[Rfam]
RNA sequence: GAUAAUGCGGAUGAGAAAUCCGCACGCCGCAAGACUAAGGGUUCCUCAGCUAUGCUAAUCAGCUGAGGGUUAGUCGGGGCCUAACGCGAACCCGAGAGGGGUAGUGGAUGGACAACAGGUUAAUAUUCCUGUACUUGCUCACAAAGAAAGUGACGGUUUUCCCAGAUGUUUACGUACUGACGGAAUAGUACGUUGAGCCUAGACUUCGGUCGAAGCGAAGACAAGUAAGAAGAUCCAAGAAAUAGCGAGUGAAGCAACCCGUACCGUAAACCGACACAGGUAGUCGAGGAGAGUAUCCUAAGGCGCU
Number, nucleotide and partner (000 for none) at each position: 001g000002a000003u000004a000005a000006u024007g023008c022009g021010g020011a019012u000013g000014a000015g000016a000017a000018a000019u011020c010021c009022g008023c007024a006025c305026g304027c303028c302029g000030c000031a000032a000033g285034a284035c283036u282037a000038a000039g265040g264041g000042u000043u000044c068045c067046u066047c065048a064049g063050c000051u000052a000053u061054g060055c000056u000057a000058a000059u000060c054061a053062g000063c049064u048065g047066a046067g045068g044069g000070u000071u000072a000073g000074u000075c261076g260077g259078g258079g000080c111081c110082u000083a000084a000085c106086g105087c104088g000089a102090a000091c100092c099093c098094g000095a000096g000097a000098g093099g092100g091101g000102u089103a000104g087105u086106g085107g000108a000109u000110g081111g080112a000113c000114a000115a132116c131117a130118g129119g128120u000121u000122a000123a000124u000125a000126u000127u000128c119129c118130u117131g116132u115133a000134c000135u257136u256137g255138c254139u253140c251141a250142c249143a000144a000145a000146g000147a000148a000149a000150g246151u245152g000153a000154c000155g235156g234157u233158u232159u000160u000161c229162c000163c000164a000165g000166a000167u223168g222169u221170u220171u219172a193173c192174g191175u190176a189177c188178u000179g000180a000181c000182g000183g000184a000185a000186u000187a000188g177189u176190a175191c174192g173193u172194u201195g200196a000197g000198c000199c000200u195201a194202g000203a000204c215205u214206u213207c212208g000209g000210u000211c000212g207213a206214a205215g204216c000217g000218a000219a171220g170221a169222c168223a167224a000225g000226u000227a000228a000229g161230a000231a000232g158233a157234u156235c155236c000237a000238a000239g000240a000241a000242a000243u000244a000245g151246c150247g000248a000249g142250u141251g140252a000253a139254g138255c137256a136257a135258c078259c077260c076261g075262u000263a000264c040265c039266g000267u000268a000269a000270a000271c280272c279273g000274a000275c000276a000277c000278a000279g272280g271281u000282a036283g035284u034285c033286g000287a299288g298289g297290a296291g000292a000293g000294u000295a000296u290297c289298c288299u287300a000301a000302g028303g027304c026305g025306c000307u000
A member of the RNA family "Bacterial large subunit ribosomal RNA" from Flavobacteriaceae bacterium Ap0902, 307 nucleotides of a longer RNA.